[Rfam]
The family of this 177-nucleotide RNA sequence from Mycolicibacterium llatzerense is "Actinobacteria sRNA Ms_IGR-5".
It scores 156 bits against the family's covariance model.
The literature on the family includes a 2013 paper in RNA by Li et al., "Identification of small RNAs in Mycobacterium smegmatis using heterologous Hfq".
By type it is a small RNA.
RNA sequence: ACACAGGGAAGGAGGUGGUCCGACAAAUUGAUUGAAACUUUGAGGACAUGUGAGGUGGCUGCCCGCUAGUAGCGCCGGGUAUUUCGUCCGAGCGCACUCGCGAAAUCCCGCAGCCACCCGGCCCCCGAGCCUCCCGGUCUUGUCCAACCAGGAACCUUGGCUCGGGGGUCGCCUCAU
Number, nucleotide and partner (000 for none) at each position: 001a000002c000003a000004c000005a000006g000007g000008g000009a000010a000011g000012g000013a000014g063015g062016u061017g060018g059019u058020c000021c000022g000023a000024c000025a000026a000027a000028u000029u000030g000031a000032u000033u000034g000035a000036a000037a000038c000039u000040u000041u000042g000043a000044g000045g000046a000047c000048a000049u000050g000051u000052g000053a000054g000055g000056u000057g000058g019059c018060u017061g016062c015063c014064c102065g101066c100067u000068a098069g097070u096071a000072g095073c094074g093075c092076c000077g089078g088079g087080u000081a000082u000083u000084u000085c000086g000087u079088c078089c077090g000091a000092g075093c074094g073095c072096a070097c069098u068099c000100g066101c065102g064103a000104a000105a000106u000107c000108c000109c000110g000111c000112a000113g000114c000115c000116a000117c000118c000119c171120g170121g169122c168123c167124c166125c165126c164127g163128a162129g161130c160131c159132u000133c152134c151135c000136g149137g148138u147139c000140u000141u000142g000143u000144c000145c000146a000147a138148c137149c136150a000151g134152g133153a000154a000155c000156c000157u000158u000159g131160g130161c129162u128163c127164g126165g125166g124167g123168g122169u121170c120171g119172c000173c000174u000175c000176a000177u000